[Rfam]
RNA sequence: CUGUGUUUUUAUAGCUUGACUCAUAUAAUUUUGGGGAUAUGGCCCAUAAGUUUCUACCGGAUAGCCAAUGCAAAUUAUCCGACUAUGAGUGCUUCGCGAUGGCUU
Number, nucleotide and partner (000 for none) at each position: 001c000002u000003g000004u000005g000006u000007u000008u000009u000010u000011a000012u000013a000014g000015c000016u000017u000018g000019a090020c089021u088022c087023a086024u085025a084026u000027a000028a000029u049030u048031u000032u046033g045034g044035g043036g000037a000038u000039a000040u000041g000042g000043c035044c034045c033046a032047u000048a030049a029050g000051u000052u000053u000054c000055u000056a000057c000058c081059g080060g079061a078062u077063a076064g075065c000066c000067a000068a000069u000070g000071c000072a000073a000074a000075u064076u063077a062078u061079c060080c059081g058082a000083c000084u025085a024086u023087g022088a021089g020090u019091g000092c000093u000094u000095c000096g000097c000098g000099a000100u000101g000102g000103c000104u000105u000
RNA: Purine riboswitch aptamer